[Rfam]
RNA sequence: GGAAAGGAUGCCCUUCUCUUCCCGGUUCUUCCCGAAGUCGGGAAAAGCUGGGUUGAGAGGGCGAAAAAAAGAAAAA
Number, nucleotide and partner (000 for none) at each position: 001g000002g000003a000004a000005a000006g000007g000008a000009u000010g000011c000012c000013c000014u059015u058016c057017u056018c055019u000020u000021c052022c051023c050024g049025g048026u000027u000028c000029u044030u043031c042032c041033c040034g039035a000036a000037g000038u000039c034040g033041g032042g031043a030044a029045a000046a000047g000048c025049u024050g023051g022052g021053u000054u000055g018056a017057g016058a015059g014060g000061g000062c000063g000064a000065a000066a000067a000068a000069a000070a000071g000072a000073a000074a000075a000076a000
The record is a 76-nucleotide RNA sequence from Callithrix jacchus, which matches "mir-320 microRNA precursor family" in Rfam. For this family Rfam cites "Many novel mammalian microRNA candidates identified by extensive cloning and RAKE analysis" (Berezikov et al., Genome Res, 2006). The base pairs follow the family's consensus structure, which was predicted with RNAalifold.